[Rfam]
Record summary
This 76-nucleotide RNA sequence from Flavobacterium johnsoniae belongs to the Rfam family "Flavo-1 RNA". Rfam's curators put it in the seed alignment.

Nucleotides: 076
Stems, first nucleotide, its partner, number of pairs: 009068003013064002018059002023054002026051001029049008
Number, partner (000 for none) and nucleotide at each position: 001000u002000c003000c004000u005000a006000g007000c008000c009068c010067c011066g012000a013064u014063c015000g016000a017000a018059a019058u020000g021000u022000u023054a024053u025000c026051u027000u028000u029049u030048u031047g032046u033045g034044g035043u036042g037000g038000g039000g040000u041000u042036c043035a044034c045033c046032a047031c048030a049029a050000a051026a052000a053024a054023u055000a056000u057000a058019a059018u060000g061000c062000a063014g064013a065000g066011c067010g068009g069000g070000a071000c072000a073000a074000a075000u076000g
The family's RNA type in Rfam is small RNA.
The family's consensus secondary structure is taken from published work.